Record summary:
The record is a 66-nucleotide RNA from Closterium sp. NIES-68, which matches "Selenocysteine insertion sequence 1" in Rfam.
[Rfam]
RNA sequence: AUGGCAUCAUGACAGCAGCAGGCUCAACCGCCACAGGCGAGGCUUGCUGCUUGAACCUCCAGCCAU
Dot-bracket structure: (((((........((((((((((.....(((.....)))..))))))))))..........)))))